[Rfam]
RNA sequence: GCAUCCUCUCGGGCUAUUGGCUAAGAUCAAGUGUAGUAUCUGUUCUUUCUAGCGCGACAGCUAGAAGGCUCCCCAUCGGGGGGCCCUGUCUGUCAUUGAAUCUUUGGGCCCUGGACGGAGUCGCUGGGGCUUGCUCCAAGUUCUGUCGCGGAUGUCGCUCGUAUUGCACUUUCUCGAGCUGACGUCCAUGGACC
Numbered sequence: 001g002c003a004u005c006c007u008c009u010c011g012g013g014c015u016a017u018u019g020g021c022u023a024a025g026a027u028c029a030a031g032u033g034u035a036g037u038a039u040c041u042g043u044u045c046u047u048u049c050u051a052g053c054g055c056g057a058c059a060g061c062u063a064g065a066a067g068g069c070u071c072c073c074c075a076u077c078g079g080g081g082g083g084c085c086c087u088g089u090c091u092g093u094c095a096u097u098g099a100a101u102c103u104u105u106g107g108g109c110c111c112u113g114g115a116c117g118g119a120g121u122c123g124c125u126g127g128g129g130c131u132u133g134c135u136c137c138a139a140g141u142u143c144u145g146u147c148g149c150g151g152a153u154g155u156c157g158c159u160c161g162u163a164u165u166g167c168a169c170u171u172u173c174u175c176g177a178g179c180u181g182a183c184g185u186c187c188a189u190g191g192a193c194c
Base pairs, nucleotide, nucleotide: 007026008025009024011022012021014019047066048065049064050063051062052061068084069083070082071081072080073079074078114147115146116145117144118143119142120141121140126137127136128135129134150187151186152185153184154183155182157179158178159177160176161175
Background
U2 spliceosomal RNA: a 194-nucleotide RNA sequence from Gonapodya prolifera. The family's consensus secondary structure is taken from published work. Rfam 15.1 lists 71,512 matches to the family in 2,642 species. The match comes from Rfam's covariance-model search (128 bits). Taxonomically the source falls in Gonapodya prolifera (Eukaryota, Opisthokonta, chytridiomyceta, Monoblepharomycota). It is annotated as a spliceosomal small nuclear RNA. Rfam's curators write: U2 is a small nuclear RNA (snRNA) component of the spliceosome (involved in pre-mRNA splicing). Complementary binding between U2 snRNA (in an area lying towards the 5' end but 3' to hairpin I) and the branchpoint sequence (BPS) of the intron results the bulging out of an unpaired adenosine, on the BPS, which initiates a nucleophilic attack at the intronic 5' splice site, thus starting the first of two transesterification reactions that mediate splicing. Its Rfam clan is "U2 clan".